[Rfam]
RNA sequence: GUUAACUUGUGUGCGGGUGGUGUUCAGCACCAGGGACAGGCGUGUUUACCCUUGUGUAGAUGAUGUCCAGCACCAGGUACAGGUGUGUUUACCC
Numbered sequence: 001g002u003u004a005a006c007u008u009g010u011g012u013g014c015g016g017g018u019g020g021u022g023u024u025c026a027g028c029a030c031c032a033g034g035g036a037c038a039g040g041c042g043u044g045u046u047u048a049c050c051c052u053u054g055u056g057u058a059g060a061u062g063a064u065g066u067c068c069a070g071c072a073c074c075a076g077g078u079a080c081a082g083g084u085g086u087g088u089u090u091a092c093c094c
Stems, first nucleotide, its partner, number of pairs: 005084006018075007027066003031062002034055001036053001039050002042047001
RNA: mir-2060 microRNA precursor family